[Rfam]
RNA sequence: AGCCUUACAAAAUGUUGGGAUUGCAGGCAAUGUUAAUCAUGGUGUCCAAAAGUAAGUUAAUGUAUCUAAAUUGAGACACAGGUUAUGCUUCCAUCACAGUAUACAUAUCGCAGUGGUGACAAUGAGAUCUGUAACAUUU
Numbered sequence: 001a002g003c004c005u006u007a008c009a010a011a012a013u014g015u016u017g018g019g020a021u022u023g024c025a026g027g028c029a030a031u032g033u034u035a036a037u038c039a040u041g042g043u044g045u046c047c048a049a050a051a052g053u054a055a056g057u058u059a060a061u062g063u064a065u066c067u068a069a070a071u072u073g074a075g076a077c078a079c080a081g082g083u084u085a086u087g088c089u090u091c092c093a094u095c096a097c098a099g100u101a102u103a104c105a106u107a108u109c110g111c112a113g114u115g116g117u118g119a120c121a122a123u124g125a126g127a128u129c130u131g132u133a134a135c136a137u138u139u
Stems, first nucleotide, its partner, number of pairs: 002066001006062002022048002026046004078132005092118006
Shown here is a 139-nucleotide sequence from Cebus imitator, a member of the family "Small nucleolar RNA SNORA1".
The family's RNA type in Rfam is H/ACA-box small nucleolar RNA.
The organism belongs to Cebus, within Eukaryota.
Rfam 15.1 lists 1,282 matches to the family in 515 species.
Gene Ontology terms of the family: RNA processing and nucleolus.